Shown here is an 86-nucleotide RNA sequence from Longispora fulva, a member of the family "ZMP/ZTP riboswitch aptamer (pfl RNA motif)". The source organism's lineage runs through Bacteria, Bacillati, Actinomycetota, Actinomycetes and Longispora. The match comes from Rfam's covariance-model search (59 bits).
RNA sequence: GGAGGCAGUCGCGACUGGCGAGGGUGGAUCACCACCGGGGAGCGGCAGCCACACAACGCACGGUGUCGACCGCCUGGGCACCUUCG
Numbered sequence: 001g002g003a004g005g006c007a008g009u010c011g012c013g014a015c016u017g018g019c020g021a022g023g024g025u026g027g028a029u030c031a032c033c034a035c036c037g038g039g040g041a042g043c044g045g046c047a048g049c050c051a052c053a054c055a056a057c058g059c060a061c062g063g064u065g066u067c068g069a070c071c072g073c074c075u076g077g078g079c080a081c082c083u084u085c086g
Stems, first nucleotide, its partner, number of pairs: 004050003008046005015039002017074004024035004063081005